[Rfam]
RNA sequence: UGAUACCAGGGUCCCAAGGCCAAGUGUUACAGGCUUGCAUCAAAAAACAUGACUUUAGGACCCUAAAACAUGAGAAAGCAGACCGAACAAGGCGGAUUUCGAAUGUUUUUAGGAUUGUGCGGGCACGAAGUACGCAAUAAUCCGCAGGUGUCA
Numbered sequence: 001u002g003a004u005a006c007c008a009g010g011g012u013c014c015c016a017a018g019g020c021c022a023a024g025u026g027u028u029a030c031a032g033g034c035u036u037g038c039a040u041c042a043a044a045a046a047a048c049a050u051g052a053c054u055u056u057a058g059g060a061c062c063c064u065a066a067a068a069c070a071u072g073a074g075a076a077a078g079c080a081g082a083c084c085g086a087a088c089a090a091g092g093c094g095g096a097u098u099u100c101g102a103a104u105g106u107u108u109u110u111a112g113g114a115u116u117g118u119g120c121g122g123g124c125a126c127g128a129a130g131u132a133c134g135c136a137a138u139a140a141u142c143c144g145c146a147g148g149u150g151u152c153a
Base pairs, nucleotide, nucleotide: 001153002152003151004150005149006148007147010062011061012060013059016056017055018054019053021051022050024048025047027045028044031040033038065109066108067107068106069105070104071103074100075099076098077097081093083091112143113142114141115140116139117138118137123133125131126130
Shown here is a 153-nucleotide RNA sequence from Anaerobium acetethylicum, a member of the family "Clostridiales-1 RNA".